[Rfam]
RNA sequence: GCAAGUUAAAGACAGCUACUGGUUUUUUGUAUUUAAACUAAGGAAACUCCGCCCAUCGUUACAGACUAUGGCGUUGAAAAACGUAUACUGAGAGGUAUGACUCUGGAGCAGAAACGACACGGCUUUUAAUGAUUGACAAUGAUAUUUUUUGAGGACAUUAAAAGAAUCGGUGAAACGGCCAUUCCAUAGGAUGCAAGAACAAAGUUGCCAAUAAUGAACUGUUCUAGGCAAGGUAGUUCGCUAAGAUGAAUGCUGUUAAACAGAAGGUGGGUUACUCUUAACAGGC
Numbered sequence: 001g002c003a004a005g006u007u008a009a010a011g012a013c014a015g016c017u018a019c020u021g022g023u024u025u026u027u028u029g030u031a032u033u034u035a036a037a038c039u040a041a042g043g044a045a046a047c048u049c050c051g052c053c054c055a056u057c058g059u060u061a062c063a064g065a066c067u068a069u070g071g072c073g074u075u076g077a078a079a080a081a082c083g084u085a086u087a088c089u090g091a092g093a094g095g096u097a098u099g100a101c102u103c104u105g106g107a108g109c110a111g112a113a114a115c116g117a118c119a120c121g122g123c124u125u126u127u128a129a130u131g132a133u134u135g136a137c138a139a140u141g142a143u144a145u146u147u148u149u150u151g152a153g154g155a156c157a158u159u160a161a162a163a164g165a166a167u168c169g170g171u172g173a174a175a176c177g178g179c180c181a182u183u184c185c186a187u188a189g190g191a192u193g194c195a196a197g198a199a200c201a202a203a204g205u206u207g208c209c210a211a212u213a214a215u216g217a218a219c220u221g222u223u224c225u226a227g228g229c230a231a232g233g234u235a236g237u238u239c240g241c242u243a244a245g246a247u248g249a250a251u252g253c254u255g256u257u258a259a260a261c262a263g264a265a266g267g268u269g270g271g272u273u274a275c276u277c278u279u280a281a282c283a284g285g286c
Stems, first nucleotide, its partner, number of pairs: 001286002005282005010276002012256005020040005045273003049270005054193004066189005071084005085098005099184002104181003120169003123164008141149002197239004206230004